The family of this 165-nucleotide RNA sequence from Parambassis ranga is "Small Cajal body specific RNA 1".
About the family: scaRNAs are a specific class of small nuclear RNAs which localise to the Cajal bodies and guide the modification of RNA polymerase II transcribed spliceosomal RNAs U1, U2, U4, U5 and U12. ACA35 belong to the H/ACA box class of guide RNAs as it has the predicted hairpin-hinge-hairpin-tail structure, conserved H/ACA-box motifs and is found associated with GAR1. It is predicted to guide pseudouridylation of the U2 spliceosomal snRNA at residue U89.
By type it is a small Cajal body RNA.
Rfam links the family to the GO terms RNA processing, Cajal body and nucleolus.
On this family, see Darzacq et al., EMBO J 2002: "Cajal body-specific small nuclear RNAs: a novel class of 2'-O-methylation and pseudouridylation guide RNAs".
[Rfam]
RNA sequence: AUGCACCAGAUACGAGCCUGACAGCCUGUUUGUCCUGGAUGUGUUGCACAUUGGGAUUUUUCAAUGGCUGCAUGGCUUCAAAAGGUGCGAUAGCAGCAUUAGCCCUGAGUUUUAAGCUUUUCAGUGACAAGCAACACUGUUGAGUUAUGGCUCAGAGGUACAGCA
Numbered sequence: 001a002u003g004c005a006c007c008a009g010a011u012a013c014g015a016g017c018c019u020g021a022c023a024g025c026c027u028g029u030u031u032g033u034c035c036u037g038g039a040u041g042u043g044u045u046g047c048a049c050a051u052u053g054g055g056a057u058u059u060u061u062c063a064a065u066g067g068c069u070g071c072a073u074g075g076c077u078u079c080a081a082a083a084g085g086u087g088c089g090a091u092a093g094c095a096g097c098a099u100u101a102g103c104c105c106u107g108a109g110u111u112u113u114a115a116g117c118u119u120u121u122c123a124g125u126g127a128c129a130a131g132c133a134a135c136a137c138u139g140u141u142g143a144g145u146u147a148u149g150g151c152u153c154a155g156a157g158g159u160a161c162a163g164c165a
Stems, first nucleotide, its partner, number of pairs: 003088005015077004022070005028060001033056002035053001039051004102159003122139005140155006